[Rfam]
RNA: mir-8/mir-141/mir-200 microRNA precursor family
Organism: Phascolarctos cinereus
RNA sequence: GUGGGCAUCUUACUAGACAGUGCUGGAUUUUUGGAUACAUUCUAACACUGUCUGGUAACGAUGUUUAA
Numbered sequence: 001g002u003g004g005g006c007a008u009c010u011u012a013c014u015a016g017a018c019a020g021u022g023c024u025g026g027a028u029u030u031u032u033g034g035a036u037a038c039a040u041u042c043u044a045a046c047a048c049u050g051u052c053u054g055g056u057a058a059c060g061a062u063g064u065u066u067a068a
Stems, first nucleotide, its partner, number of pairs: 002067008010058013024044004
Dot-bracket structure: .(((((((((((((((((((((.((((.............)))).))))))))))))).)))))))).